Small nucleolar RNA SNORD103/SNORD85: an 81-nucleotide RNA from Ornithorhynchus anatinus.
The organism belongs to Ornithorhynchus, within Eukaryota.
For this family Rfam cites "RNomics: an experimental approach that identifies 201 candidates for novel, small, non-messenger RNAs in mouse" (Huttenhofer et al., EMBO J, 2001).
Rfam 15.1 lists 1,349 matches to the family in 595 species.
A search with the family's covariance model found it, with a score of 61 bits.
The pairing is the family consensus, mapped onto this sequence.

RNA sequence: GCUGGCAGGGAUGACACACUUGCCCUCGCAUAGAUUCUGCUGAUGAGAACAUCUCUCCGUACUCGACUGUUCUGAGCCAGC
Numbered sequence: 001g002c003u004g005g006c007a008g009g010g011a012u013g014a015c016a017c018a019c020u021u022g023c024c025c026u027c028g029c030a031u032a033g034a035u036u037c038u039g040c041u042g043a044u045g046a047g048a049a050c051a052u053c054u055c056u057c058c059g060u061a062c063u064c065g066a067c068u069g070u071u072c073u074g075a076g077c078c079a080g081c
Stems, first nucleotide, its partner, number of pairs: 001081006